[Rfam]
RNA sequence: UUUUGGAUGAUGAAAAGAAUCAUUCGGAUUCCCAAUGAUAUUUUUAUAUGAUAUCAACCAGCUAUUUCUGACCAAA
Numbered sequence: 001u002u003u004u005g006g007a008u009g010a011u012g013a014a015a016a017g018a019a020u021c022a023u024u025c026g027g028a029u030u031c032c033c034a035a036u037g038a039u040a041u042u043u044u045u046a047u048a049u050g051a052u053a054u055c056a057a058c059c060a061g062c063u064a065u066u067u068c069u070g071a072c073c074a075a076a
Stems, first nucleotide, its partner, number of pairs: 001076003005072001
Overview
A member of the RNA family "Small nucleolar RNA R12" from Ziziphus jujuba, 76 nucleotides long. The literature on the family includes a 2003 paper in Nucleic Acids Res by Chen et al., "The high diversity of snoRNAs in plants: identification and comparative study of 120 snoRNA genes from Oryza sativa". snoR12 is a C/D box small nucleolar RNA, which acts as a methylation guide for 25S ribosomal RNA in plants. snoR12 has been alternatively named snoZ44 in Arabidopsis and snoZ131 in rice. The source organism's lineage runs through Eukaryota, Mesangiospermae, Pentapetalae, Paliureae and Ziziphus jujuba.